Background:
This 54-nucleotide RNA from Coregonus sp. 'balchen' belongs to the Rfam family "UnaL2 LINE 3' element". Rfam's curators write: The eel long interspersed element (LINE) UnaL2 and its partner short interspersed element (SINE) share a conserved 3' tail containing a stem-loop that is critical for their retrotransposition. Lineage of the source: Eukaryota > Eumetazoa > Chordata > Gnathostomata > Coregonus. The base pairs follow the family's consensus structure, which is taken from published work. By type it is a cis-regulatory element.
RNA sequence: CCAGAUGUUGACUGUAAGUCGCUUUGGAUAAAAGCGUCUGCUAAAUGGCAUAUU
Numbered sequence: 001c002c003a004g005a006u007g008u009u010g011a012c013u014g015u016a017a018g019u020c021g022c023u024u025u026g027g028a029u030a031a032a033a034g035c036g037u038c039u040g041c042u043a044a045a046u047g048g049c050a051u052a053u054u
Base pairs, nucleotide, nucleotide: 013043014041015040016039020036021035022034023033024032025031